The record is a 76-nucleotide RNA from Scyliorhinus torazame, which matches "mir-34 microRNA precursor family" in Rfam. Its family is annotated with miRNA-mediated post-transcriptional gene silencing and RISC complex in the Gene Ontology. It scores 62 bits against the family's covariance model. A reference for the family is Lim et al. (2003), "Vertebrate microRNA genes", Science. Clan: mir-34 clan. The family's consensus secondary structure was predicted with RNAalifold. Rfam 15.1 lists 2,256 matches to the family in 820 species.
[Rfam]
RNA sequence: GUUUCUUUGGCAGUGUCUUAGCUGGUUGUUGUGUGCAUUGCGAAAAAGCAAUCAGCAAGUAUACUGCCUCAGAAAC
Numbered sequence: 001g002u003u004u005c006u007u008u009g010g011c012a013g014u015g016u017c018u019u020a021g022c023u024g025g026u027u028g029u030u031g032u033g034u035g036c037a038u039u040g041c042g043a044a045a046a047a048g049c050a051a052u053c054a055g056c057a058a059g060u061a062u063a064c065u066g067c068c069u070c071a072g073a074a075a076c
Stems, first nucleotide, its partner, number of pairs: 002075005009068002012065005018059002021056001023054008
Dot-bracket structure: .(((((..((.(((((.((.(.((((((((................)))))))).).)).))))).))..))))).
About this RNA:
NCBI's taxonomy places the organism under Eukaryota, Deuterostomia, Selachii, Scyliorhinidae, Scyliorhinus. Human mir-34a was discovered computationally and later experimentally verified.